[Rfam]
RNA sequence: UGCAACAUUACAGGGCAAUAUCUCCAAUGGCAGGAAGCCACUUAGACAUGAAUUAAUGUAUGCAGUGUGCUCUCUGCCAAAGGAGAUUUGCCCGGCAAUUCUUUU
Numbered sequence: 001u002g003c004a005a006c007a008u009u010a011c012a013g014g015g016c017a018a019u020a021u022c023u024c025c026a027a028u029g030g031c032a033g034g035a036a037g038c039c040a041c042u043u044a045g046a047c048a049u050g051a052a053u054u055a056a057u058g059u060a061u062g063c064a065g066u067g068u069g070c071u072c073u074c075u076g077c078c079a080a081a082g083g084a085g086a087u088u089u090g091c092c093c094g095g096c097a098a099u100u101c102u103u104u105u
Stems, first nucleotide, its partner, number of pairs: 007099003011095001013093006022085004028079007036071001
RNA: mir-399 microRNA precursor family
Organism: Hibiscus syriacus